[Rfam]
RNA sequence: UAACAAAUUGUAAAAAAAACUCGUAUAUCAUCGGUAAUAUGGUCCGAAAGUUUCUACCUGCUACCCGUAAAUUGGCAGACUACGAGGUAUUUUAUUUUUGUG
Numbered sequence: 001u002a003a004c005a006a007a008u009u010g011u012a013a014a015a016a017a018a019a020c021u022c023g024u025a026u027a028u029c030a031u032c033g034g035u036a037a038u039a040u041g042g043u044c045c046g047a048a049a050g051u052u053u054c055u056a057c058c059u060g061c062u063a064c065c066c067g068u069a070a071a072u073u074g075g076c077a078g079a080c081u082a083c084g085a086g087g088u089a090u091u092u093u094a095u096u097u098u099u100g101u102g
Stems, first nucleotide, its partner, number of pairs: 018088001020086006031047004058078006
Purine riboswitch aptamer: a 102-nucleotide sequence from Clostridium thailandense. Its family is annotated with purine nucleobase biosynthetic process in the Gene Ontology. The family's consensus secondary structure is taken from published work. The organism belongs to Clostridium, within Bacteria.